[Rfam]
Source information: Small nucleolar RNA SNORD100: an 85-nucleotide RNA sequence from Ornithorhynchus anatinus. For this family Rfam cites "RNomics: an experimental approach that identifies 201 candidates for novel, small, non-messenger RNAs in mouse" (Huttenhofer et al., EMBO J, 2001). Its Rfam clan is "SNORD100 clan". It is annotated as a C/D-box small nucleolar RNA. Rfam links the family to the GO terms nucleolus and RNA processing. The source organism's lineage runs through Eukaryota, Craniata, Tetrapoda, Monotremata and Ornithorhynchus.
RNA sequence: GCUGUACAUGAUGAUAGCUUGGCUCCCUCUACUGAAAAUGGUGAGGAUAAUAGCCAUGUCACCCAAUAGUAUCUGAACGUACAGC
Numbered sequence: 001g002c003u004g005u006a007c008a009u010g011a012u013g014a015u016a017g018c019u020u021g022g023c024u025c026c027c028u029c030u031a032c033u034g035a036a037a038a039u040g041g042u043g044a045g046g047a048u049a050a051u052a053g054c055c056a057u058g059u060c061a062c063c064c065a066a067u068a069g070u071a072u073c074u075g076a077a078c079g080u081a082c083a084g085c
Base pairs, nucleotide, nucleotide: 001085002084003083004082005081006080